Shown here is an 84-nucleotide RNA, a member of the family "skipping-rope RNA". The sequence is in the family's curated seed alignment.
RNA sequence: AUUAUCCGAGGUGGGAAAGUUCGUUGCACCCACACGCCUUAAUGGUUAAAAGAGAUGUAACAGAAGCGACGGUUACUGGAUAGA
Numbered sequence: 001a002u003u004a005u006c007c008g009a010g011g012u013g014g015g016a017a018a019g020u021u022c023g024u025u026g027c028a029c030c031c032a033c034a035c036g037c038c039u040u041a042a043u044g045g046u047u048a049a050a051a052g053a054g055a056u057g058u059a060a061c062a063g064a065a066g067c068g069a070c071g072g073u074u075a076c077u078g079g080a081u082a083g084a
Stems, first nucleotide, its partner, number of pairs: 002083007011033005023070005035052001036046003057076005